[Rfam]
RNA sequence: CAUACAAUUGAGAGGCAACUCUUAACUGGCCAGUUGGGGAAAGGCCGAGAGGUUUAAGCUCAACGGGCAGAAAACGGGGGACAGCAGUACUAAACAUUCCUCGUGGCUGAGACGAAGGUAGUACUUCAACAGCGUCUCAA
Numbered sequence: 001c002a003u004a005c006a007a008u009u010g011a012g013a014g015g016c017a018a019c020u021c022u023u024a025a026c027u028g029g030c031c032a033g034u035u036g037g038g039g040a041a042a043g044g045c046c047g048a049g050a051g052g053u054u055u056a057a058g059c060u061c062a063a064c065g066g067g068c069a070g071a072a073a074a075c076g077g078g079g080g081a082c083a084g085c086a087g088u089a090c091u092a093a094a095c096a097u098u099c100c101u102c103g104u105g106g107c108u109g110a111g112a113c114g115a116a117g118g119u120a121g122u123a124c125u126u127c128a129a130c131a132g133c134g135u136c137u138c139a140a
Stems, first nucleotide, its partner, number of pairs: 008025007026070003030067002033064006043054004074104008087124005109138006117130001
This 140-nucleotide RNA belongs to the Rfam family "IMES-2 RNA motif". It scores 125 bits against the family's covariance model.